Source information
This 327-nucleotide RNA sequence from Nannospalax galili belongs to the Rfam family "7SK RNA". Pairs were carried over by alignment from the consensus structure, which is taken from published work. From the family's description: 7SK was discovered as an abundant small nuclear RNA in the mid-70s but a possible function has only recently been suggested. Two independent studies have found that 7SK RNA binds the CDK9/cyclin T complex (known as elongation factor P-TEFb).
RNA sequence: GGAUGUGAGGGUGAUAAGGCUGAGACAUCUGUUACCCCAUUGAUCACCAGGGUUGAUUCAGCUGAUCUGGCUGCCUAGGGGGGUGACCCCUUCCUCCCUCAAGGCUCCAUGUGUGUCUCUCCCGAAGCUGCACUCUCGGUCAGAGAGGAUGACCUUACCGGAUAGAGGGGGACCGGUCUUUGGUCAAGGGUAUACCAGUAGCUGCGCUCCCCUGCUAGAACCUCCAAACAAGCUCUCAAGGUCCAUUUGUAGGAGAACGUAGGGUAGUCAAGCUUCCAAGACUCCAGACACAUCCAAACCAGGCACUGCACAUGGCAAUCCACCUUU
Numbered sequence: 001g002g003a004u005g006u007g008a009g010g011g012u013g014a015u016a017a018g019g020c021u022g023a024g025a026c027a028u029c030u031g032u033u034a035c036c037c038c039a040u041u042g043a044u045c046a047c048c049a050g051g052g053u054u055g056a057u058u059c060a061g062c063u064g065a066u067c068u069g070g071c072u073g074c075c076u077a078g079g080g081g082g083g084u085g086a087c088c089c090c091u092u093c094c095u096c097c098c099u100c101a102a103g104g105c106u107c108c109a110u111g112u113g114u115g116u117c118u119c120u121c122c123c124g125a126a127g128c129u130g131c132a133c134u135c136u137c138g139g140u141c142a143g144a145g146a147g148g149a150u151g152a153c154c155u156u157a158c159c160g161g162a163u164a165g166a167g168g169g170g171g172a173c174c175g176g177u178c179u180u181u182g183g184u185c186a187a188g189g190g191u192a193u194a195c196c197a198g199u200a201g202c203u204g205c206g207c208u209c210c211c212c213u214g215c216u217a218g219a220a221c222c223u224c225c226a227a228a229c230a231a232g233c234u235c236u237c238a239a240g241g242u243c244c245a246u247u248u249g250u251a252g253g254a255g256a257a258c259g260u261a262g263g264g265u266a267g268u269c270a271a272g273c274u275u276c277c278a279a280g281a282c283u284c285c286a287g288a289c290a291c292a293u294c295c296a297a298a299c300c301a302g303g304c305a306c307u308g309c310a311c312a313u314g315g316c317a318a319u320c321c322a323c324c325u326u327u
Stems, first nucleotide, its partner, number of pairs: 001108003006101006013093002018090002024087001026085005032079002036073001037070003042067004047061001116171002118168004122139004127135001140162002147158001149156001201273003207267002210264006222255004228250005301325003305319001307317003

The family has 45 seed sequences and 49,373 matches in Rfam 15.1.